[Rfam]
The record is a 77-nucleotide sequence from Xenopus laevis, which matches "mir-1 microRNA precursor family" in Rfam.
From the family's description: This family represents the microRNA (miRNA) mir-1 family. miRNAs are transcribed as ~70nt precursors (modelled here) and subsequently processed by the Dicer enzyme to give a ~22nt product. In this case the mature sequence comes from the 3' arm of the precursor.
A search with the family's covariance model found it, with a score of 67 bits.
Pairs were carried over by alignment from the consensus structure, which was predicted with RNAalifold.
RNA sequence: CUUUAGGGCACAUACUUCUUUAUAUGCCCAUACUGAAUGCCAAUGCUAUGGAAUGUUAAGAAGUAUGUAACCUAAGG
Numbered sequence: 001c002u003u004u005a006g007g008g009c010a011c012a013u014a015c016u017u018c019u020u021u022a023u024a025u026g027c028c029c030a031u032a033c034u035g036a037a038u039g040c041c042a043a044u045g046c047u048a049u050g051g052a053a054u055g056u057u058a059a060g061a062a063g064u065a066u067g068u069a070a071c072c073u074a075a076g077g
Stems, first nucleotide, its partner, number of pairs: 007071001010068011022056004028051005